[Rfam]
Bacterial RNase P class A: a 394-nucleotide RNA sequence from Maritimibacter fusiformis. Lineage of the source: Bacteria > Pseudomonadati > Alphaproteobacteria > Roseobacteraceae > Maritimibacter. Pairs were carried over by alignment from the consensus structure, which is taken from published work. Ribonuclease P (RNase P) is a ubiquitous endoribonuclease, found in archaea, bacteria and eukarya as well as chloroplasts and mitochondria. Its best characterised activity is the generation of mature 5'-ends of tRNAs by cleaving the 5'-leader elements of precursor-tRNAs. Cellular RNase Ps are ribonucleoproteins. RNA from bacterial RNase Ps retains its catalytic activity in the absence of the protein subunit, i.e. it is a ribozyme. Isolated eukaryotic and archaeal RNase P RNA has not been shown to retain its catalytic function, but is still essential for the catalytic activity of the holoenzyme. Although the archaeal and eukaryotic holoenzyme s have a much greater protein content than the bacterial ones, the RNA cores from all the three lineages are homologous -- helices corresponding to P1, P2, P3, P4, and P10/11 are common to all cellular RNase P RNAs. Yet, there is considerable sequence variation, particularly among the eukaryotic RNAs. Identified in Yersinia as Ysr151/RnpB.

Nucleotides: 394
Base pairs, nucleotide, nucleotide: 001390002389003388004387005386006385007384008383009382010381011379012341013340014339015338016337017336018335020039021038022037023036024035025034026033027032044377045376046375048374049373050372051371052370053231054230055229056228061276062275064273066227067226068225069224070223071085072084073083074082075081086100087098088097089096090095101222102221106220107219108216109215110214123162124161125158126157127156128155129154131152132151133150170188171187172186173185174184175183189211190209191208192207194205195204196203197202235298236297237296238295245289246288247287248286249285250284267281268280269279270278271277305324306323307322308321309320310319311318312317
Number, partner (000 for none) and nucleotide at each position: 001390g002389c003388g004387g005386a006385u007384g008383g009382c010381c011379g012341g013340a014339u015338g016337g017336c018335c019000g020039c021038g022037u023036g024035g025034g026033u027032g028000g029000c030000g031000a032027c033026a034025c035024c036023u037022g038021c039020g040000a041000g042000g043000a044377a045376a046375g047000u048374c049373c050372g051371g052370a053231c054230u055229c056228c057000a058000c059000a060000a061276g062275g063000c064273a065000a066227c067226g068225g069224u070223g071085c072084c073083g074082g075081g076000u077000a078000a079000c080000g081075c082074c083073c084072g085071g086100c087098c088097g089096g090095g091000g092000u093000a094000a095090c096089c097088c098087g099000a100086g101222g102221g103000a104000a105000a106220g107219c108216g109215c110214c111000a112000c113000a114000g115000a116000g117000a118000a119000c120000a121000g122000u123162c124161c125158g126157c127156c128155u129154u130000c131152g132151u133150g134000c135000g136000c137000c138000g139000c140000u141000c142000g143000c144000g145000c146000g147000g148000c149000a150133c151132g152131c153000a154129g155128a156127g157126g158125u159000c160000a161124g162123g163000g164000u165000g166000a167000a168000a169000c170188g171187g172186u173185g174184g175183g176000g177000u178000a179000a180000g181000a182000g183175c184174c185173c186172a187171c188170c189211g190209c191208g192207g193000g194205c195204c196203u197202g198000g199000c200000a201000a202197c203196a204195g205194g206000a207192c208191c209190g210000g211189c212000a213000c214110g215109g216108c217000a218000a219107g220106c221102c222101c223070c224069a225068c226067c227066g228056g229055g230054a231053g232000c233000a234000a235298u236297g237296c238295c239000g240000a241000a242000u243000a244000g245289g246288g247287a248286u249285c250284u251000c252000g253000c254000g255000c256000g257000g258000u259000u260000c261000g262000c263000c264000g265000c266000a267281g268280g269279g270278c271277c272000g273064u274000c275062u276061u277271g278270g279269c280268c281267c282000g283000g284250a285249g286248g287247u288246c289245c290000g291000g292000g293000u294000u295238g296237g297236c298235a299000g300000c301000u302000a303000g304000a305324g306323c307322g308321u309320a310319u311318g312317g313000g314000c315000a316000a317312c318311c319310a320309u321308g322307c323306g324305c325000c326000c327000a328000g329000a330000g331000g332000a333000a334000u335018g336017g337016u338015c339014a340013u341012c342000g343000g344000c345000c346000c347000c348000g349000g350000g351000c352000a353000u354000g355000c356000c357000c358000g359000g360000g361000g362000u363000g364000a365000c366000a367000g368000a369000a370052u371051c372050c373049g374048g375046c376045u377044u378000a379011c380000a381010g382009g383008c384007u385006a386005u387004c388003c389002g390001c391000g392000c393000g394000c